[Rfam]
RNA sequence: CGAGCCGGGCGGACGGCCGCGUGGAGGCCCUUGUGGACCUCCCCGAGGAACGUCCGGGCUCCACAGGGCAGGGUGGUGGCUAACGGCCACCCGGGGUGACCCGCGGGACAGUGCCACAGAAAGCAGACCGCCCAGCGCUUCGGCGCUGGGUAAGGGUGAAACGGUGGUGUAAGAGACCACCAGUGCCCAGGGCGACCUGGGCAGCUAGGUAAACCCCACCCGGAGCAAGGUCAAGAAGGGGCCGCCUCCUCGCAAGAGGGGCGACCCUGCGCGGACGUUCGAGGGCUGCCCGCCCGAGUCCGCGGGUAGACCGCACGAGGCCGGUGGCAACACCGGCCCUAGAUGGAUGGCCGUCGCCCAGGGCUCCGCGAGGAACCCUGGGAACAGAACCCGGCGUACAGCCCGACUCGUCUG
Numbered sequence: 001c002g003a004g005c006c007g008g009g010c011g012g013a014c015g016g017c018c019g020c021g022u023g024g025a026g027g028c029c030c031u032u033g034u035g036g037a038c039c040u041c042c043c044c045g046a047g048g049a050a051c052g053u054c055c056g057g058g059c060u061c062c063a064c065a066g067g068g069c070a071g072g073g074u075g076g077u078g079g080c081u082a083a084c085g086g087c088c089a090c091c092c093g094g095g096g097u098g099a100c101c102c103g104c105g106g107g108a109c110a111g112u113g114c115c116a117c118a119g120a121a122a123g124c125a126g127a128c129c130g131c132c133c134a135g136c137g138c139u140u141c142g143g144c145g146c147u148g149g150g151u152a153a154g155g156g157u158g159a160a161a162c163g164g165u166g167g168u169g170u171a172a173g174a175g176a177c178c179a180c181c182a183g184u185g186c187c188c189a190g191g192g193c194g195a196c197c198u199g200g201g202c203a204g205c206u207a208g209g210u211a212a213a214c215c216c217c218a219c220c221c222g223g224a225g226c227a228a229g230g231u232c233a234a235g236a237a238g239g240g241g242c243c244g245c246c247u248c249c250u251c252g253c254a255a256g257a258g259g260g261g262c263g264a265c266c267c268u269g270c271g272c273g274g275a276c277g278u279u280c281g282a283g284g285g286c287u288g289c290c291c292g293c294c295c296g297a298g299u300c301c302g303c304g305g306g307u308a309g310a311c312c313g314c315a316c317g318a319g320g321c322c323g324g325u326g327g328c329a330a331c332a333c334c335g336g337c338c339c340u341a342g343a344u345g346g347a348u349g350g351c352c353g354u355c356g357c358c359c360a361g362g363g364c365u366c367c368g369c370g371a372g373g374a375a376c377c378c379u380g381g382g383a384a385c386a387g388a389a390c391c392c393g394g395c396g397u398a399c400a401g402c403c404c405g406a407c408u409c410g411u412c413u414g
Stems, first nucleotide, its partner, number of pairs: 001410004006405005011399001012355007020045002023042005050397003054394005059225004066291004071221005076090005091105001092103004106216002111214002113210003128155002130151009163181006183205001184203008229312004283295004319338008

Description
The record is a 414-nucleotide sequence from Streptomyces sp., which matches "Bacterial RNase P class A" in Rfam. Its family is annotated with ribonuclease P activity, dimeric ribonuclease P complex and tRNA processing in the Gene Ontology. Rfam's curators write: Ribonuclease P (RNase P) is a ubiquitous endoribonuclease, found in archaea, bacteria and eukarya as well as chloroplasts and mitochondria. The family's RNA type in Rfam is ribozyme. The organism belongs to Streptomyces, within Bacteria.